RNA sequence: UUGGUUUAAAUCACUAUGGAUCUACACUUUGAAAAUUCAACCCACACAAAGUGGUGAAACAUAUAUUAAUUUCAUCCGA
Numbered sequence: 001u002u003g004g005u006u007u008a009a010a011u012c013a014c015u016a017u018g019g020a021u022c023u024a025c026a027c028u029u030u031g032a033a034a035a036u037u038c039a040a041c042c043c044a045c046a047c048a049a050a051g052u053g054g055u056g057a058a059a060c061a062u063a064u065a066u067u068a069a070u071u072u073c074a075u076c077c078g079a
Base pairs, nucleotide, nucleotide: 001079002078003077004076006074008072009071010070011069013067015065016064017063018062023056024055025053026052027051028050029049030048031047
A member of the RNA family "MIR5269 microRNA precursor family" from Medicago truncatula, 79 nucleotides long.
Gene Ontology terms of the family: miRNA-mediated post-transcriptional gene silencing and RISC complex.